Shown here is a 63-nucleotide RNA sequence from Paralichthys olivaceus, a member of the family "mir-122 microRNA precursor family". Gene Ontology terms of the family: RISC complex and miRNA-mediated post-transcriptional gene silencing. The sequence is in the family's curated seed alignment. A reference for the family is Lagos-Quintana et al. (2002), "Identification of tissue-specific microRNAs from mouse", Curr Biol. The source organism's lineage runs through Eukaryota, Chordata, Euteleostomi, Paralichthyidae and Paralichthys. The family has 32 seed sequences and 666 matches in Rfam 15.1.
RNA sequence: CUGUGGAGUGUGACAAUGGUGUUUGUGUCCUGUCUAUCAAACGCCAUUAUCACACUAUAUAGC
Numbered sequence: 001c002u003g004u005g006g007a008g009u010g011u012g013a014c015a016a017u018g019g020u021g022u023u024u025g026u027g028u029c030c031u032g033u034c035u036a037u038c039a040a041a042c043g044c045c046a047u048u049a050u051c052a053c054a055c056u057a058u059a060u061a062g063c
Stems, first nucleotide, its partner, number of pairs: 007056007015048011